[Rfam]
RNA sequence: AUUGUUCACUCUCCCUGAAGGCUUCAGCUCUUCAACCAAUCUCUGGUGUACACAAAGCUUGAAGCCUUAGGGGAGAGUGGAUAAAAG
Numbered sequence: 001a002u003u004g005u006u007c008a009c010u011c012u013c014c015c016u017g018a019a020g021g022c023u024u025c026a027g028c029u030c031u032u033c034a035a036c037c038a039a040u041c042u043c044u045g046g047u048g049u050a051c052a053c054a055a056a057g058c059u060u061g062a063a064g065c066c067u068u069a070g071g072g073g074a075g076a077g078u079g080g081a082u083a084a085a086a087g
Stems, first nucleotide, its partner, number of pairs: 006080011018068010
Rfam assigns this 87-nucleotide RNA from Hevea brasiliensis to the family "MIR473 microRNA precursor family". A search with the family's covariance model found it, with a score of 62 bits.